[Rfam]
RNA: mir-142 microRNA precursor family
RNA sequence: CAGUGCACUCAUCCAUAAAGUAGGAAACACUACACUGGGUUGAAUGGUUUAGUAGUGCUUUCUACUUUAUGGAUGACUGCACUGU
Numbered sequence: 001c002a003g004u005g006c007a008c009u010c011a012u013c014c015a016u017a018a019a020g021u022a023g024g025a026a027a028c029a030c031u032a033c034a035c036u037g038g039g040u041u042g043a044a045u046g047g048u049u050u051a052g053u054a055g056u057g058c059u060u061u062c063u064a065c066u067u068u069a070u071g072g073a074u075g076a077c078u079g080c081a082c083u084g085u
Stems, first nucleotide, its partner, number of pairs: 014071010026059001028057006
Dot-bracket structure: .............((((((((((..(.((((((..................)))))).)..))))))))))..............